Rfam assigns this 115-nucleotide RNA sequence from Novipirellula artificiosorum to the family "c-di-GMP-I riboswitch aptamer". The base pairs follow the family's consensus structure, which is taken from published work. NCBI's taxonomy places the organism under Bacteria, Pseudomonadati, Planctomycetia, Pirellulaceae, Novipirellula. On this family, see Weinberg et al., Nucleic Acids Res 2007: "Identification of 22 candidate structured RNAs in bacteria using the CMfinder comparative genomics pipeline". Rfam links the family to the GO term cyclic-di-GMP binding. The match comes from Rfam's covariance-model search (51 bits).

[Rfam]
RNA sequence: CUUCGACAAAGGCAUACCGCUUGAGAAGGCGGGGCGCAAAGCCACGGGUCCGUGAGUGAAUGGUGUUCGUUCUUCGUAGCGAGCACGGUUGCUUCAGGAAAGCCGAGCUGCCGGG
Numbered sequence: 001c002u003u004c005g006a007c008a009a010a011g012g013c014a015u016a017c018c019g020c021u022u023g024a025g026a027a028g029g030c031g032g033g034g035c036g037c038a039a040a041g042c043c044a045c046g047g048g049u050c051c052g053u054g055a056g057u058g059a060a061u062g063g064u065g066u067u068c069g070u071u072c073u074u075c076g077u078a079g080c081g082a083g084c085a086c087g088g089u090u091g092c093u094u095c096a097g098g099a100a101a102g103c104c105g106a107g108c109u110g111c112c113g114g115g
Stems, first nucleotide, its partner, number of pairs: 012037002017032006040109003045105003049099002